Rfam assigns this 167-nucleotide sequence from Intestinibacter bartlettii to the family "Lysine riboswitch aptamer". The source organism's lineage runs through Bacteria, Bacillati, Bacillota, Clostridia and Intestinibacter bartlettii. The family's consensus secondary structure is taken from published work.
RNA sequence: ACCUAGGGUAGAGGUGCUUUAAAAUAAGAGUAUUUAUAAGGAGCUGGCAAGUUUAGAUUUAUAAAGAAAGGAUUUUAGAGCCGAAGUUUUAAACUUGGCGAAGUUUACUGCUGGACUUAUGCAUAAGAUGUAUAAGGCUGUCACUUUUGUGAUGAGCUACAAGGUUU
Numbered sequence: 001a002c003c004u005a006g007g008g009u010a011g012a013g014g015u016g017c018u019u020u021a022a023a024a025u026a027a028g029a030g031u032a033u034u035u036a037u038a039a040g041g042a043g044c045u046g047g048c049a050a051g052u053u054u055a056g057a058u059u060u061a062u063a064a065a066g067a068a069a070g071g072a073u074u075u076u077a078g079a080g081c082c083g084a085a086g087u088u089u090u091a092a093a094c095u096u097g098g099c100g101a102a103g104u105u106u107a108c109u110g111c112u113g114g115a116c117u118u119a120u121g122c123a124u125a126a127g128a129u130g131u132a133u134a135a136g137g138c139u140g141u142c143a144c145u146u147u148u149g150u151g152a153u154g155a156g157c158u159a160c161a162a163g164g165u166u167u
Base pairs, nucleotide, nucleotide: 008160009159010158011157016081017080018079019078020077021076022075023074024073033065034064035063036062037061038060039059040058085112086111087110090107091106092105093104094103095102096101113139114138116136117135118134119133120132121131122130123129141152142151143150144149